Rfam assigns this 234-nucleotide RNA sequence from Xanthobacter dioxanivorans to the family "permuted transfer-messenger RNA".
RNA sequence: GGCGAUAAAUGGUUGUCGUAAUAAGCCUUUCGGACCCGGGGGCGGUACCCGGCGCCUCCACCUGAGUCCAUCGCGCGUGUUGUUUCCGGACGGCGCGGGUUGGGCUUCGGCGGGGGCGAAAUAGGAUCGACGAGGGUGUAAAGGGCAUUCUUUCGCUCGGCAUUGUUCCGCCGUUAUCGGGCUAAACUUAUAGUUGCCAACGACAACUAUGCUCCGGUUGCUCAGGCCGCGUGA
Numbered sequence: 001g002g003c004g005a006u007a008a009a010u011g012g013u014u015g016u017c018g019u020a021a022u023a024a025g026c027c028u029u030u031c032g033g034a035c036c037c038g039g040g041g042g043c044g045g046u047a048c049c050c051g052g053c054g055c056c057u058c059c060a061c062c063u064g065a066g067u068c069c070a071u072c073g074c075g076c077g078u079g080u081u082g083u084u085u086c087c088g089g090a091c092g093g094c095g096c097g098g099g100u101u102g103g104g105c106u107u108c109g110g111c112g113g114g115g116g117c118g119a120a121a122u123a124g125g126a127u128c129g130a131c132g133a134g135g136g137u138g139u140a141a142a143g144g145g146c147a148u149u150c151u152u153u154c155g156c157u158c159g160g161c162a163u164u165g166u167u168c169c170g171c172c173g174u175u176a177u178c179g180g181g182c183u184a185a186a187c188u189u190a191u192a193g194u195u196g197c198c199a200a201c202g203a204c205a206a207c208u209a210u211g212c213u214c215c216g217g218u219u220g221c222u223c224a225g226g227c228c229g230c231g232u233g234a
Stems, first nucleotide, its partner, number of pairs: 001157005014147004026136003030133003036052005053118007158173004
Dot-bracket structure: (((((........((((........(((.(((...(((((.......)))))(((((((....................................................)))))))............)))))).......)))).....)))))((((........)))).............................................................
NCBI's taxonomy places the organism under Bacteria, Pseudomonadota, Alphaproteobacteria, Xanthobacteraceae, Xanthobacter.